[Rfam]
RNA: glmS glucosamine-6-phosphate activated ribozyme aptamer
RNA sequence: UUGCCCCAGUAAGCGCCUGAACCACCCGGCAAAGGUUUUUGACGGAGUGGUUGACGAGGUAGGGGUUGAUCGAAAAUCGGCGGAUGCCCCUCGGCCCGGUCAGGCCGGAAAGACACCGCAAAUUCCGGGAGCAAUCCCGGCGCCAAAGGGUGUUGGUGACCAAA
Numbered sequence: 001u002u003g004c005c006c007c008a009g010u011a012a013g014c015g016c017c018u019g020a021a022c023c024a025c026c027c028g029g030c031a032a033a034g035g036u037u038u039u040u041g042a043c044g045g046a047g048u049g050g051u052u053g054a055c056g057a058g059g060u061a062g063g064g065g066u067u068g069a070u071c072g073a074a075a076a077u078c079g080g081c082g083g084a085u086g087c088c089c090c091u092c093g094g095c096c097c098g099g100u101c102a103g104g105c106c107g108g109a110a111a112g113a114c115a116c117c118g119c120a121a122a123u124u125c126c127g128g129g130a131g132c133a134a135u136c137c138c139g140g141c142g143c144c145a146a147a148g149g150g151u152g153u154u155g156g157u158g159a160c161c162a163a164a
Stems, first nucleotide, its partner, number of pairs: 020052006027045001029043001061091005070080004092107005112154006125140006